[Rfam]
RNA sequence: UGGCGGACUGUGCCAACCGGACAUGAUGGAGAAGGAGAACACGGAAAUUUUUCCGGUUUCUCUCCGUGGCCAACGAAAUGGCAGGCGAGCUUCUAACCCAUCCGGUCC
Number, nucleotide and partner (000 for none) at each position: 001u000002g000003g000004c000005g000006g107007a106008c105009u104010g000011u023012g022013c000014c020015a000016a000017c000018c000019g000020g014021a000022c012023a011024u000025g102026a101027u100028g099029g098030a000031g000032a000033a000034g093035g092036a091037g090038a000039a000040c068041a067042c066043g065044g064045a063046a000047a000048u000049u000050u000051u000052u000053c000054c000055g000056g000057u000058u000059u000060c000061u000062c000063u045064c044065c043066g042067u041068g040069g082070c081071c080072a000073a000074c000075g000076a000077a000078a000079u000080g071081g070082c069083a000084g000085g000086c000087g000088a000089g000090c037091u036092u035093c034094u000095a000096a000097c000098c029099c028100a027101u026102c025103c000104g009105g008106u007107c006108c000
A member of the RNA family "Rhizobiales sRNA Atu_At1" from Rhizobium album, 108 nucleotides long. It is annotated as a small RNA. For this family Rfam cites "Deep sequencing uncovers numerous small RNAs on all four replicons of the plant pathogen Agrobacterium tumefaciens" (Wilms et al., RNA Biol, 2012). NCBI's taxonomy places the organism under Bacteria, Pseudomonadota, Hyphomicrobiales, Rhizobiaceae, Rhizobium. It scores 108 bits against the family's covariance model.